RNA sequence: UUGAUCAGUAUUAGAGAGAAUAAAAAUAUUGUACUUAAAUUUAAGUACAAUGAUUUUUAUCGCCGAAGGUGCAAGUUAACUACUAAACUCUCAGGCAAAAGGAUAAUACUGCUACG
Numbered sequence: 001u002u003g004a005u006c007a008g009u010a011u012u013a014g015a016g017a018g019a020a021u022a023a024a025a026a027u028a029u030u031g032u033a034c035u036u037a038a039a040u041u042u043a044a045g046u047a048c049a050a051u052g053a054u055u056u057u058u059a060u061c062g063c064c065g066a067a068g069g070u071g072c073a074a075g076u077u078a079a080c081u082a083c084u085a086a087a088c089u090c091u092c093a094g095g096c097a098a099a100a101g102g103a104u105a106a107u108a109c110u111g112c113u114a115c116g
Base pairs, nucleotide, nucleotide: 006111007110008109009108010107011106012105013104020060021059022058023057024056025055026054027053062096063095064094065092066091069090071088075083076082
Dot-bracket structure: .....((((((((......((((((((.........................)))))))).(((((..(.(...((.....))....).))).))).......)))))))).....